[Rfam]
The family of this 99-nucleotide RNA sequence from Hypholoma sublateritium is "Small nucleolar RNA Z13/snr52". A search with the family's covariance model found it, with a score of 84 bits. Gene Ontology terms of the family: nucleolus and RNA processing. By type it is a C/D-box small nucleolar RNA. Pairs were carried over by alignment from the consensus structure, which was predicted with PFOLD.
RNA sequence: ACCCCCAACAUGAUGAAGUAUUGCGGAUGUUAAACACAUAUUUCUCCGAGAGCGCAAAACCGUGUGGAGCUUUCCGUUGCCUUCCUUCUGACCCCUGUC
Numbered sequence: 001a002c003c004c005c006c007a008a009c010a011u012g013a014u015g016a017a018g019u020a021u022u023g024c025g026g027a028u029g030u031u032a033a034a035c036a037c038a039u040a041u042u043u044c045u046c047c048g049a050g051a052g053c054g055c056a057a058a059a060c061c062g063u064g065u066g067g068a069g070c071u072u073u074c075c076g077u078u079g080c081c082u083u084c085c086u087u088c089u090g091a092c093c094c095c096u097g098u099c
Stems, first nucleotide, its partner, number of pairs: 004097001024076004